[Rfam]
A member of the RNA family "Small nucleolar RNA SNORA44" from Callorhinus ursinus, 130 nucleotides long.
ACA44 is a member of the H/ACA class of snoRNA that guide the sites of modification of uridines to pseudouridines.
The family is grouped with related families in Rfam's "SNORA44 clan".

RNA sequence: CAGCAUGUUUCCAAGGGCUGUGGCCCAUCGUGGCCAUGGGCUCCCCAACCACAUGCAGGAGCAGCCUGGAGAGACUUUGACAGCACAAGUCAGCCUAUACCUGCAACUGCCACUCACCUUGCCUAGAACA
Numbered sequence: 001c002a003g004c005a006u007g008u009u010u011c012c013a014a015g016g017g018c019u020g021u022g023g024c025c026c027a028u029c030g031u032g033g034c035c036a037u038g039g040g041c042u043c044c045c046c047a048a049c050c051a052c053a054u055g056c057a058g059g060a061g062c063a064g065c066c067u068g069g070a071g072a073g074a075c076u077u078u079g080a081c082a083g084c085a086c087a088a089g090u091c092a093g094c095c096u097a098u099a100c101c102u103g104c105a106a107c108u109g110c111c112a113c114u115c116a117c118c119u120u121g122c123c124u125a126g127a128a129c130a
Stems, first nucleotide, its partner, number of pairs: 011039002016035007068123002071120003083110002086103002089100001
It scores 119 bits against the family's covariance model.